[Rfam]
RNA sequence: UAUGGAAAGGGUUAGUAUUACCCUUUCCAUACAAAUGUAGCAUGUAGCA
Numbered sequence: 001u002a003u004g005g006a007a008a009g010g011g012u013u014a015g016u017a018u019u020a021c022c023c024u025u026u027c028c029a030u031a032c033a034a035a036u037g038u039a040g041c042a043u044g045u046a047g048c049a
Stems, first nucleotide, its partner, number of pairs: 001031011

The record is a 49-nucleotide RNA sequence, which matches "ssNA-helicase RNA" in Rfam. Pairs were carried over by alignment from the consensus structure, which is taken from published work.